[Rfam]
RNA sequence: GGAGUUGGCCAGAUUGUCGCUACGUGUAGAGGAAAGUCCGGGCUCCGCAGGGCAGGACGCUGGGUAACUCCCAGGGGGAGCGAUCUCCGUCAAGUGCAACAGAAAGUAUACCGCCUCCGGGCUUCGGCUCGGCGGUAAGGGUGAAACGGUGGGGUAAGAGCCCACCGGCUGUCGUGGUGACGCGGCAGGCCAGGUGAACUCCGUCCGGAGCAAGACCAAAUAGGGCAGCGCCAAGAUCGGCCCGAUCGUGCUGCCGGGUAGGUUGCUUGAGGCGUCUGGUAACAGCCGUCCGAGAUGAAUGACAAUCGCCCCGCAAGGGGAACAGGACCCGGCUUAUCGGCCGACUCCGAAC
Numbered sequence: 001g002g003a004g005u006u007g008g009c010c011a012g013a014u015u016g017u018c019g020c021u022a023c024g025u026g027u028a029g030a031g032g033a034a035a036g037u038c039c040g041g042g043c044u045c046c047g048c049a050g051g052g053c054a055g056g057a058c059g060c061u062g063g064g065u066a067a068c069u070c071c072c073a074g075g076g077g078g079a080g081c082g083a084u085c086u087c088c089g090u091c092a093a094g095u096g097c098a099a100c101a102g103a104a105a106g107u108a109u110a111c112c113g114c115c116u117c118c119g120g121g122c123u124u125c126g127g128c129u130c131g132g133c134g135g136u137a138a139g140g141g142u143g144a145a146a147c148g149g150u151g152g153g154g155u156a157a158g159a160g161c162c163c164a165c166c167g168g169c170u171g172u173c174g175u176g177g178u179g180a181c182g183c184g185g186c187a188g189g190c191c192a193g194g195u196g197a198a199c200u201c202c203g204u205c206c207g208g209a210g211c212a213a214g215a216c217c218a219a220a221u222a223g224g225g226c227a228g229c230g231c232c233a234a235g236a237u238c239g240g241c242c243c244g245a246u247c248g249u250g251c252u253g254c255c256g257g258g259u260a261g262g263u264u265g266c267u268u269g270a271g272g273c274g275u276c277u278g279g280u281a282a283c284a285g286c287c288g289u290c291c292g293a294g295a296u297g298a299a300u301g302a303c304a305a306u307c308g309c310c311c312c313g314c315a316a317g318g319g320g321a322a323c324a325g326g327a328c329c330c331g332g333c334u335u336a337u338c339g340g341c342c343g344a345c346u347c348c349g350a351a352c
Stems, first nucleotide, its partner, number of pairs: 001348010011337001012307007020029003034335003038332005043210004050243004055206005060074005075088005089201001094199002096195002111140002113136003117132006148166006168190001169188008214264004224255006235247004271290004276285003

Notes
Shown here is a 352-nucleotide RNA from Pseudodesulfovibrio profundus, a member of the family "Bacterial RNase P class A". From the family's description: Ribonuclease P (RNase P) is a ubiquitous endoribonuclease, found in archaea, bacteria and eukarya as well as chloroplasts and mitochondria. The family's consensus secondary structure is taken from published work. The match comes from Rfam's covariance-model search (304 bits).